RNA sequence: UCGCGACCACACGGGUGUCCCAGGAGGGGCUGAGAUCGGACUGACACUGUCCGGACCGUAGAACCUGACCGGGUAAUGCCGGCGAAGGAAGUGAGUACCGAUGAAAU
Numbered sequence: 001u002c003g004c005g006a007c008c009a010c011a012c013g014g015g016u017g018u019c020c021c022a023g024g025a026g027g028g029g030c031u032g033a034g035a036u037c038g039g040a041c042u043g044a045c046a047c048u049g050u051c052c053g054g055a056c057c058g059u060a061g062a063a064c065c066u067g068a069c070c071g072g073g074u075a076a077u078g079c080c081g082g083c084g085a086a087g088g089a090a091g092u093g094a095g096u097a098c099c100g101a102u103g104a105a106a107u
Stems, first nucleotide, its partner, number of pairs: 008093003011059004017030005037053005064088003069082004
TPP riboswitch aptamer (THI element): a 107-nucleotide RNA from Arthrobacter woluwensis. The family's consensus secondary structure is taken from published work. It scores 57 bits against the family's covariance model.